[Rfam]
RNA: Guanidine-II riboswitch aptamer (mini-ykkC)
RNA sequence: CGACCGGGACGGCCCGGUCUCUUCAAAGGGUCAAUAGCCGGGACGACCCGG
Numbered sequence: 001c002g003a004c005c006g007g008g009a010c011g012g013c014c015c016g017g018u019c020u021c022u023u024c025a026a027a028g029g030g031u032c033a034a035u036a037g038c039c040g041g042g043a044c045g046a047c048c049c050g051g
Base pairs, nucleotide, nucleotide: 002019003018004017005016006015007014008013038051039050040049041048042047